Background:
Small nucleolar RNA Z161/Z228: a 101-nucleotide sequence from Asparagus officinalis. The source organism's lineage runs through Eukaryota, Streptophyta, Streptophytina, Tracheophyta and Asparagus. The match comes from Rfam's covariance-model search (56 bits). Rfam classes the family as a C/D-box small nucleolar RNA. Rfam links the family to the GO terms nucleolus and RNA processing. The family's consensus secondary structure was predicted with PFOLD. The literature on the family includes a 2003 paper in Nucleic Acids Res by Chen et al., "The high diversity of snoRNAs in plants: identification and comparative study of 120 snoRNA genes from Oryza sativa".

RNA sequence: AAGCCACAUGAUGAAUACAGGAUUAUUUCUCACGACGGUCGUCUGAGGCACAUUUUAUUUUGUGCUUAUGUUGAUACCAACAUCCUAUCUCUCUGAUGGCU
Numbered sequence: 001a002a003g004c005c006a007c008a009u010g011a012u013g014a015a016u017a018c019a020g021g022a023u024u025a026u027u028u029c030u031c032a033c034g035a036c037g038g039u040c041g042u043c044u045g046a047g048g049c050a051c052a053u054u055u056u057a058u059u060u061u062g063u064g065c066u067u068a069u070g071u072u073g074a075u076a077c078c079a080a081c082a083u084c085c086u087a088u089c090u091c092u093c094u095g096a097u098g099g100c101u
Stems, first nucleotide, its partner, number of pairs: 001101001004098001049064003